Shown here is a 131-nucleotide RNA from Sinorhizobium terangae, a member of the family "Alphaproteobacterial sRNA ar35". The base pairs follow the family's consensus structure. It is annotated as a small RNA.

RNA sequence: AUUGCCUGUUCAGAUGUCGGCGAGAUCGCCUGACCUGCAGGCAGGCUUCGCGCUCGGAACGCUGACCACGGAUGUACUGGCAGAUAGAGCAGCGAAGGGGAAAAGGUCGGGGCGCCCCGGCCUUUUUUGUU
Numbered sequence: 001a002u003u004g005c006c007u008g009u010u011c012a013g014a015u016g017u018c019g020g021c022g023a024g025a026u027c028g029c030c031u032g033a034c035c036u037g038c039a040g041g042c043a044g045g046c047u048u049c050g051c052g053c054u055c056g057g058a059a060c061g062c063u064g065a066c067c068a069c070g071g072a073u074g075u076a077c078u079g080g081c082a083g084a085u086a087g088a089g090c091a092g093c094g095a096a097g098g099g100g101a102a103a104a105g106g107u108c109g110g111g112g113c114g115c116c117c118c119g120g121c122c123u124u125u126u127u128u129g130u131u
Stems, first nucleotide, its partner, number of pairs: 003043007016034005047096005052090002063082002066080003097130001099128012